The record is a 136-nucleotide sequence from Ipomoea nil, which matches "Small nucleolar RNA snoR111" in Rfam. The match comes from Rfam's covariance-model search (82 bits).
[Rfam]
RNA sequence: AUCGCAAUGAGAGAUAAUUAUGGAAGUUUAUCUUCUCAUUGUAUUGUAUAAUAAGGGAGGCGAAAAUGAUGAUGGCGAGAUAUCGUUUCGGUCGUCACUUCUCUCCAUUGACGAUUCGAUUGUUGCUCGUCCACAU
Numbered sequence: 001a002u003c004g005c006a007a008u009g010a011g012a013g014a015u016a017a018u019u020a021u022g023g024a025a026g027u028u029u030a031u032c033u034u035c036u037c038a039u040u041g042u043a044u045u046g047u048a049u050a051a052u053a054a055g056g057g058a059g060g061c062g063a064a065a066a067u068g069a070u071g072a073u074g075g076c077g078a079g080a081u082a083u084c085g086u087u088u089c090g091g092u093c094g095u096c097a098c099u100u101c102u103c104u105c106c107a108u109u110g111a112c113g114a115u116u117c118g119a120u121u122g123u124u125g126c127u128c129g130u131c132c133a134c135a136u
Stems, first nucleotide, its partner, number of pairs: 006040006013032005074132002077128003082120004091115007099107001